The family of this 73-nucleotide RNA sequence from Alkaliphilus oremlandii is "Fluoride riboswitch aptamer (crcB RNA motif)". Pairs were carried over by alignment from the consensus structure, which is taken from published work. Its family is annotated with positive regulation of gene expression and response to fluoride in the Gene Ontology.
RNA sequence: AUUUCUAUAGGGAAUGAAGUUCUCCCUUGGCAAUAGCCUAAACCGCAAAUAUGCUGAUGACUUCUGCGAAAAU
Numbered sequence: 001a002u003u004u005c006u007a008u009a010g011g012g013a014a015u016g017a018a019g020u021u022c023u024c025c026c027u028u029g030g031c032a033a034u035a036g037c038c039u040a041a042a043c044c045g046c047a048a049a050u051a052u053g054c055u056g057a058u059g060a061c062u063u064c065u066g067c068g069a070a071a072a073u
Base pairs, nucleotide, nucleotide: 010025011024012023016064017063018062019061020060021059045054046053047052